Shown here is a 156-nucleotide RNA from Populus trichocarpa, a member of the family "MIR2912 microRNA precursor family".
RNA sequence: UCUAGAACUCGAGAUAUGAGCUAAAAAUCGAACAGUGUCUGGGCUGCAAGACAUAUUCUGACUUCUCCGUUAUUGCUACCAUUUGAACUCAAAAAUGACACUUUUAAAUCUUGGACUCCUCAUGAAAGUUUUAGGCCUAUAUCUUAGCUUUCCAUA
Numbered sequence: 001u002c003u004a005g006a007a008c009u010c011g012a013g014a015u016a017u018g019a020g021c022u023a024a025a026a027a028u029c030g031a032a033c034a035g036u037g038u039c040u041g042g043g044c045u046g047c048a049a050g051a052c053a054u055a056u057u058c059u060g061a062c063u064u065c066u067c068c069g070u071u072a073u074u075g076c077u078a079c080c081a082u083u084u085g086a087a088c089u090c091a092a093a094a095a096u097g098a099c100a101c102u103u104u105u106a107a108a109u110c111u112u113g114g115a116c117u118c119c120u121c122a123u124g125a126a127a128g129u130u131u132u133a134g135g136c137c138u139a140u141a142u143c144u145u146a147g148c149u150u151u152c153c154a155u156a
Stems, first nucleotide, its partner, number of pairs: 003154001005152003008147002011145008020136001021134005027129002035123003041119003045115001048112004055104001059100002063097001073087002
Lineage of the source: Eukaryota > Streptophytina > Malpighiales > Salicaceae > Populus. Pairs were carried over by alignment from the consensus structure, which was predicted with RNAalifold.